Actinobacteria sRNA Ms_IGR-5: a 200-nucleotide RNA from Streptomyces sp. SLBN-118.
The family's RNA type in Rfam is small RNA.
Pairs were carried over by alignment from the consensus structure.
The match comes from Rfam's covariance-model search (90 bits).
NCBI's taxonomy places the organism under Bacteria, Actinomycetes, Kitasatosporales, Streptomycetaceae, Streptomyces.
[Rfam]
RNA sequence: ACACGGUGAAAGGAGGUGAUCCGGAAGUGAUGUCUUUUCGGAUGCGUGAGGUGACUGCGGGCUGACGGCCCGUCGUCGCACUCUGUGUGCAGCCGACUGACCGUCGGCCGAAAUUCCCAGCAGUCACCGACCCGCGGGCUCGCCGGCACAUCCGGCCGGCCCCUCCGCAAGGAGGGACCAGAGCCCGCGGGUUUCUGCGU
Numbered sequence: 001a002c003a004c005g006g007u008g009a010a011a012g013g014a015g016g017u018g019a020u021c022c023g024g025a026a027g028u029g030a031u032g033u034c035u036u037u038u039c040g041g042a043u044g045c046g047u048g049a050g051g052u053g054a055c056u057g058c059g060g061g062c063u064g065a066c067g068g069c070c071c072g073u074c075g076u077c078g079c080a081c082u083c084u085g086u087g088u089g090c091a092g093c094c095g096a097c098u099g100a101c102c103g104u105c106g107g108c109c110g111a112a113a114u115u116c117c118c119a120g121c122a123g124u125c126a127c128c129g130a131c132c133c134g135c136g137g138g139c140u141c142g143c144c145g146g147c148a149c150a151u152c153c154g155g156c157c158g159g160c161c162c163c164u165c166c167g168c169a170a171g172g173a174g175g176g177a178c179c180a181g182a183g184c185c186c187g188c189g190g191g192u193u194u195c196u197g198c199g200u
Stems, first nucleotide, its partner, number of pairs: 016058003020054001060109007068101001070099001073096003129193012142160006